[Rfam]
Notes
A member of the RNA family "FMN riboswitch aptamer (RFN element)" from Pigmentiphaga litoralis, 156 nucleotides long. Lineage of the source: Bacteria > Pseudomonadota > Betaproteobacteria > Burkholderiales > Pigmentiphaga.
RNA sequence: CAACGUUCUCGGGGCGGGGUGCGAUUCCCCACCGGCGGUAAUGGCGCUGCAUCCAGAUGCGCACCUAGCCCGCGAGCGCCCGCCACCCUGGCGGGGUCAGCAGAUUUCGGUGCGAUUCCGAAGCCGACGGUACAGUCCGGAUGAAAGAGAGCGGGA
Numbered sequence: 001c002a003a004c005g006u007u008c009u010c011g012g013g014g015c016g017g018g019g020u021g022c023g024a025u026u027c028c029c030c031a032c033c034g035g036c037g038g039u040a041a042u043g044g045c046g047c048u049g050c051a052u053c054c055a056g057a058u059g060c061g062c063a064c065c066u067a068g069c070c071c072g073c074g075a076g077c078g079c080c081c082g083c084c085a086c087c088c089u090g091g092c093g094g095g096g097u098c099a100g101c102a103g104a105u106u107u108c109g110g111u112g113c114g115a116u117u118c119c120g121a122a123g124c125c126g127a128c129g130g131u132a133c134a135g136u137c138c139g140g141a142u143g144a145a146a147g148a149g150a151g152c153g154g155g156a
Stems, first nucleotide, its partner, number of pairs: 004153007017029003031136002033126002035073004068124002076101002106122005128139003
A search with the family's covariance model found it, with a score of 103 bits.